[Rfam]
RNA: Small nucleolar RNA snoR2/U65
Organism: Nyssa sinensis
RNA sequence: GGUCCGAUGCCACGUCGCCGAUAGCCACCGAGCAUUGACCGACGAUGCUAUGAUCGGACCUAAAUCAAUCCUCUGUUUCGCAUGUUGAUAGGAAUCUGUGGACUGAUCAAUUACAGUUCAUCCACGGAGCCGAUUUUUUGCGAUUACAUUU
Numbered sequence: 001g002g003u004c005c006g007a008u009g010c011c012a013c014g015u016c017g018c019c020g021a022u023a024g025c026c027a028c029c030g031a032g033c034a035u036u037g038a039c040c041g042a043c044g045a046u047g048c049u050a051u052g053a054u055c056g057g058a059c060c061u062a063a064a065u066c067a068a069u070c071c072u073c074u075g076u077u078u079c080g081c082a083u084g085u086u087g088a089u090a091g092g093a094a095u096c097u098g099u100g101g102a103c104u105g106a107u108c109a110a111u112u113a114c115a116g117u118u119c120a121u122c123c124a125c126g127g128a129g130c131c132g133a134u135u136u137u138u139u140g141c142g143a144u145u146a147c148a149u150u151u
Base pairs, nucleotide, nucleotide: 002059003058004057005056006055007054008053009051013047014046015045016044017043020040022038024033025032078143079142080141081140082139091131092130096127097126098125100123101122102121104120105119